[Rfam]
RNA sequence: GUAUUUUAUCCUUCAUUCCACCGGAGUCUGUGUUAAGAGCAAAUCAGAUUUCAGUGGUUUGAAGAGUAGGAAACA
Numbered sequence: 001g002u003a004u005u006u007u008a009u010c011c012u013u014c015a016u017u018c019c020a021c022c023g024g025a026g027u028c029u030g031u032g033u034u035a036a037g038a039g040c041a042a043a044u045c046a047g048a049u050u051u052c053a054g055u056g057g058u059u060u061g062a063a064g065a066g067u068a069g070g071a072a073a074c075a
Base pairs, nucleotide, nucleotide: 011064012063013062014061015060019056020055021054023052024051025050026049028047029046030045

The record is a 75-nucleotide RNA sequence from Cynoglossus semilaevis, which matches "mir-205 microRNA precursor family" in Rfam. Gene Ontology terms of the family: RISC complex and miRNA-mediated post-transcriptional gene silencing. On this family, see Lim et al., Science 2003: "Vertebrate microRNA genes". Lineage of the source: Eukaryota > Teleostomi > Carangaria > Pleuronectiformes > Cynoglossus. Pairs were carried over by alignment from the consensus structure, which was predicted with RNAalifold.